[Rfam]
RNA sequence: CCGCCGCCACAACGGCUUCCUGGCGUGGCGGAUGUAACCCCAAUGGAGCA
Numbered sequence: 001c002c003g004c005c006g007c008c009a010c011a012a013c014g015g016c017u018u019c020c021u022g023g024c025g026u027g028g029c030g031g032a033u034g035u036a037a038c039c040c041c042a043a044u045g046g047a048g049c050a
Stems, first nucleotide, its partner, number of pairs: 004031007013022002015049003019046002

The record is a 50-nucleotide RNA from Mangrovicoccus algicola, which matches "SAM/SAH riboswitch aptamer" in Rfam. Its family is annotated with S-adenosylmethionine metabolic process and regulation of gene expression in the Gene Ontology. Lineage of the source: Bacteria > Pseudomonadati > Alphaproteobacteria > Rhodobacterales > Mangrovicoccus. On this family, see Weickhmann et al., Nucleic Acids Res 2019: "The structure of the SAM/SAH-binding riboswitch".